[Rfam]
RNA sequence: ACAAUUAUAUUCGAAGGGAUGAUGGGUGGCCAAUGAUAAACUAAUCUUAUUUCAAACAUUUGAAAAAUUUUUUCAAAUUAUAGAAUAGGAUUAGUCUGCCCAUUUUCCAUAUAUUCGUUAAAAGCUAUACAAUAAUAGCUUAUUUGCGUUAUGAAAAUUGCAACUAAUCCUUCCAAAUUUAUUUGGGAGGAUUUUUUU
Numbered sequence: 001a002c003a004a005u006u007a008u009a010u011u012c013g014a015a016g017g018g019a020u021g022a023u024g025g026g027u028g029g030c031c032a033a034u035g036a037u038a039a040a041c042u043a044a045u046c047u048u049a050u051u052u053c054a055a056a057c058a059u060u061u062g063a064a065a066a067a068u069u070u071u072u073u074c075a076a077a078u079u080a081u082a083g084a085a086u087a088g089g090a091u092u093a094g095u096c097u098g099c100c101c102a103u104u105u106u107c108c109a110u111a112u113a114u115u116c117g118u119u120a121a122a123a124g125c126u127a128u129a130c131a132a133u134a135a136u137a138g139c140u141u142a143u144u145u146g147c148g149u150u151a152u153g154a155a156a157a158u159u160g161c162a163a164c165u166a167a168u169c170c171u172u173c174c175a176a177a178u179u180u181a182u183u184u185g186g187g188a189g190g191a192u193u194u195u196u197u198u
Stems, first nucleotide, its partner, number of pairs: 016108004023102004029096001031094001042093011054081001058078009116146002123140006166193011
RNA: Bacillus sRNA ncr1575
Organism: Pseudoneobacillus rhizosphaerae